[Rfam]
RNA sequence: AUUUCAUUCGGCGAUGGGGUUCCGCCUUACAACCGCUCCUUUUUUGGUGCUGAUGACUCCUACUUCAAC
Numbered sequence: 001a002u003u004u005c006a007u008u009c010g011g012c013g014a015u016g017g018g019g020u021u022c023c024g025c026c027u028u029a030c031a032a033c034c035g036c037u038c039c040u041u042u043u044u045u046g047g048u049g050c051u052g053a054u055g056a057c058u059c060c061u062a063c064u065u066c067a068a069c
Base pairs, nucleotide, nucleotide: 010026011025012024013023016060017059018058019057020056021055035050036049038047
The family of this 69-nucleotide RNA from Rhodonellum psychrophilum is "Fluoride riboswitch aptamer (crcB RNA motif)". The source organism's lineage runs through Bacteria, Cytophagia, Cytophagales, Rhodonellum and Rhodonellum psychrophilum.